[Rfam]
RNA: Lysine riboswitch aptamer
Organism: Limosilactobacillus reuteri
RNA sequence: AUUCGAUGAAGAGGUUGCAUAUUUUAUUAGUAACUGAUAUUAGGUGAAUAAGCACCGGAGUAUUAGUGAAAGGGAAAUAUGCCGAAACACUACUUAGCUUAUUUCUGGUAGGUGUUGGGCUAUAGUCAUAAUAGGCUAUAGACUGUCGCAAUAAUUGCGGGGCGCUUCCUAAAUU
Dot-bracket structure: .....(.((((.....(((((((((.......((((((((...................))))))))......)))))))))...((((((..((((.......))))..))))))((.((((((((......)))))))).)).((((((...))))))....)))).).....
Numbered sequence: 001a002u003u004c005g006a007u008g009a010a011g012a013g014g015u016u017g018c019a020u021a022u023u024u025u026a027u028u029a030g031u032a033a034c035u036g037a038u039a040u041u042a043g044g045u046g047a048a049u050a051a052g053c054a055c056c057g058g059a060g061u062a063u064u065a066g067u068g069a070a071a072g073g074g075a076a077a078u079a080u081g082c083c084g085a086a087a088c089a090c091u092a093c094u095u096a097g098c099u100u101a102u103u104u105c106u107g108g109u110a111g112g113u114g115u116u117g118g119g120c121u122a123u124a125g126u127c128a129u130a131a132u133a134g135g136c137u138a139u140a141g142a143c144u145g146u147c148g149c150a151a152u153a154a155u156u157g158c159g160g161g162g163c164g165c166u167u168c169c170u171a172a173a174u175u
Stems, first nucleotide, its partner, number of pairs: 006170001008168004017082009033067008086116006094108004117144002120141008146160006